[Rfam]
RNA sequence: GUGCGGACACAAAAACUUUAGUUUUUGAACGUCGGCUUGUCGACGGUGGCGAAGCCAUAGCAAGCGUGCCAGCGGUUGCGUAUAAUCUUUUCAUUGU
Numbered sequence: 001g002u003g004c005g006g007a008c009a010c011a012a013a014a015a016c017u018u019u020a021g022u023u024u025u026u027g028a029a030c031g032u033c034g035g036c037u038u039g040u041c042g043a044c045g046g047u048g049g050c051g052a053a054g055c056c057a058u059a060g061c062a063a064g065c066g067u068g069c070c071a072g073c074g075g076u077u078g079c080g081u082a083u084a085a086u087c088u089u090u091u092c093a094u095u096g097u
Stems, first nucleotide, its partner, number of pairs: 010027007030045006046058005060079004065074003082094002085091001